Description: Rfam assigns this 65-nucleotide RNA sequence from Lichenibacterium ramalinae to the family "int-alpA RNA". A search with the family's covariance model found it, with a score of 53 bits. Taxonomically the source falls in Lichenibacterium (Bacteria, Pseudomonadati, Pseudomonadota, Lichenihabitantaceae). Rfam's curators write: Acidobacteria (1 example), Planctomycetes (1 example), Proteobacteria.
[Rfam]
RNA sequence: GUCGCGCCUAGCCCGACGGGGCGAACGGAGGUUUCCCCGACCUCCUGGCGCGGCCACCUUCGGGG
Numbered sequence: 001g002u003c004g005c006g007c008c009u010a011g012c013c014c015g016a017c018g019g020g021g022c023g024a025a026c027g028g029a030g031g032u033u034u035c036c037c038c039g040a041c042c043u044c045c046u047g048g049c050g051c052g053g054c055c056a057c058c059u060u061c062g063g064g065g
Base pairs, nucleotide, nucleotide: 001054002053003052004051005050006049007048008047011022012021013020014019028044029043030042031041036065037064038063